The record is a 94-nucleotide RNA sequence from Tetracentron sinense, which matches "Small nucleolar RNA SNORD24" in Rfam. Gene Ontology terms of the family: RNA processing and nucleolus. Rfam classes the family as a C/D-box small nucleolar RNA.
[Rfam]
RNA sequence: GGCCGGUGAUGUGAGAUUAAUAUUUGCUACUCUUGAUGGGGGUUCUGUGAACCCUCAUUUGAUGAGAUUGUUAUCCACCAAGAUCUCUGAGGCU
Number, nucleotide and partner (000 for none) at each position: 001g094002g093003c092004c091005g000006g000007u000008g000009a000010u000011g000012u000013g000014a000015g000016a000017u000018u000019a000020a000021u000022a000023u000024u000025u000026g000027c000028u000029a000030c000031u000032c000033u000034u000035g000036a000037u000038g000039g000040g000041g000042g000043u000044u000045c000046u000047g000048u000049g000050a000051a000052c000053c000054c000055u000056c000057a000058u000059u000060u000061g000062a000063u000064g000065a000066g000067a000068u000069u000070g000071u000072u000073a000074u000075c000076c000077a000078c000079c000080a000081a000082g000083a000084u000085c000086u000087c000088u000089g000090a000091g004092g003093c002094u001